Overview: A member of the RNA family "Ribosomal protein L10 leader" from Fructobacillus durionis, 120 nucleotides long. A search with the family's covariance model found it, with a score of 69 bits. About the family: This family is a putative r-protein leader autoregulatory structure found in B. subtilis and other low-GC Gram-positive bacteria. It is located in the 5' untranslated regions of mRNAs encoding ribosomal proteins L10 and L12 (rplJ-rplL). A Rho-independent transcription terminator structure that is probably involved in regulation is included at the 3' end. The base pairs follow the family's consensus structure, which was predicted with CMfinder. By type it is a cis-regulatory leader.

RNA sequence: UAAAUUAAAUCAAUUUUGCCUAAGACUCAGGUGGUGCUUGCACCUUAAUCUCCUGCCGAGGAAGUUAUGAAAACUAACUGACCCGUCUGUCUUCUGGCAGGCGGGUUUCUUUUGCAAAAA
Numbered sequence: 001u002a003a004a005u006u007a008a009a010u011c012a013a014u015u016u017u018g019c020c021u022a023a024g025a026c027u028c029a030g031g032u033g034g035u036g037c038u039u040g041c042a043c044c045u046u047a048a049u050c051u052c053c054u055g056c057c058g059a060g061g062a063a064g065u066u067a068u069g070a071a072a073a074c075u076a077a078c079u080g081a082c083c084c085g086u087c088u089g090u091c092u093u094c095u096g097g098c099a100g101g102c103g104g105g106u107u108u109c110u111u112u113u114g115c116a117a118a119a120a
Base pairs, nucleotide, nucleotide: 028055029054030053031052033044034043035042082105083104084103085102086101087100088099089098090097091096